[Rfam]
RNA sequence: GGGGGCGACUGGUUUCGACACGAUAGCUCUGAGAGAGGAAGCAGGCCGUGGUCUCCUCGCCACGUUAAACAGGGGUACCGUCAAAAUGAAUUGACAAGAAUUCUUCUUACGAGCCCCAGCUGGCUCUUGCUGCUUAAUUAAUUAGCGGCACGUCGCGCUCGGGAGGUUCCCCGGCCCGGACCCGAUGUCAUUUGAGGGGAACGCUCCCGCGCACGUAAUCGGUAUGGCGCGGGCUAAGAUCGAACCGGUUAGGACGCCGCGAGCGUGUCGCUGCGCGCAACGCGUCCGAAUCUAAACCAGCGACUGAGCCUGGAGAUGCCGAUCAGGGGGCUUUCGUGGACCGGAGUUCGAUUCUCCGCGCCUCCACCA
Numbered sequence: 001g002g003g004g005g006c007g008a009c010u011g012g013u014u015u016c017g018a019c020a021c022g023a024u025a026g027c028u029c030u031g032a033g034a035g036a037g038g039a040a041g042c043a044g045g046c047c048g049u050g051g052u053c054u055c056c057u058c059g060c061c062a063c064g065u066u067a068a069a070c071a072g073g074g075g076u077a078c079c080g081u082c083a084a085a086a087u088g089a090a091u092u093g094a095c096a097a098g099a100a101u102u103c104u105u106c107u108u109a110c111g112a113g114c115c116c117c118a119g120c121u122g123g124c125u126c127u128u129g130c131u132g133c134u135u136a137a138u139u140a141a142u143u144a145g146c147g148g149c150a151c152g153u154c155g156c157g158c159u160c161g162g163g164a165g166g167u168u169c170c171c172c173g174g175c176c177c178g179g180a181c182c183c184g185a186u187g188u189c190a191u192u193u194g195a196g197g198g199g200a201a202c203g204c205u206c207c208c209g210c211g212c213a214c215g216u217a218a219u220c221g222g223u224a225u226g227g228c229g230c231g232g233g234c235u236a237a238g239a240u241c242g243a244a245c246c247g248g249u250u251a252g253g254a255c256g257c258c259g260c261g262a263g264c265g266u267g268u269c270g271c272u273g274c275g276c277g278c279a280a281c282g283c284g285u286c287c288g289a290a291u292c293u294a295a296a297c298c299a300g301c302g303a304c305u306g307a308g309c310c311u312g313g314a315g316a317u318g319c320c321g322a323u324c325a326g327g328g329g330g331c332u333u334u335c336g337u338g339g340a341c342c343g344g345a346g347u348u349c350g351a352u353u354c355u356c357c358g359c360g361c362c363u364c365c366a367c368c369a
Base pairs, nucleotide, nucleotide: 001365002364003363004362005361006360007359019338020337021336022335023334025332026331027330028329029328030327033324034323037320038319040317042312043311044310045309046308047064048063049062050061051060052077054075055074056073057072125150127148128147129146130145131144132143151187152186153185154184155183159179160178161177162176163175167199168198169197171196206233207232208231209230210229211228212227217250218249219248220247221246222245252287253286254285255284256283257282261278263276264275265274267304268303269302270301273297342358343357344356345355346354
Background
transfer-messenger RNA: a 369-nucleotide sequence from Collinsella sp. An271. The base pairs follow the family's consensus structure, which is taken from published work. The family's RNA type in Rfam is non-coding RNA gene. The source organism's lineage runs through Bacteria, Actinomycetota, Coriobacteriia, Coriobacteriales and Collinsella. The match comes from Rfam's covariance-model search (146 bits).